[Rfam]
RNA sequence: GGACGGGGACGACCCCGGCGCAGUUGCAGGUCCCGGACGGGGACGACCCCG
Numbered sequence: 001g002g003a004c005g006g007g008g009a010c011g012a013c014c015c016c017g018g019c020g021c022a023g024u025u026g027c028a029g030g031u032c033c034c035g036g037a038c039g040g041g042g043a044c045g046a047c048c049c050c051g
Stems, first nucleotide, its partner, number of pairs: 002019001004017005038051005